[Rfam]
RNA: Mammalian CPEB3 ribozyme
Organism: Microcaecilia unicolor
RNA sequence: GGUCUGGUUCCGGGGGCCACGAUAGAUAUUUUCACAUUGUAGCUCUGUCAGAUUCCUAUAAAUCUGUGGAUUCUGCU
Number, nucleotide and partner (000 for none) at each position: 001g000002g000003u000004c000005u000006g000007g000008u000009u000010c000011c000012g000013g000014g045015g044016g043017c042018c000019a000020c000021g077022a000023u075024a074025g073026a072027u000028a040029u039030u000031u000032u000033c000034a000035c000036a000037u000038u000039g029040u028041a000042g017043c016044u015045c014046u000047g000048u000049c066050a065051g064052a063053u062054u061055c000056c000057u000058a000059u000060a000061a054062a053063u052064c051065u050066g049067u000068g000069g000070a000071u000072u026073c025074u024075g023076c000077u021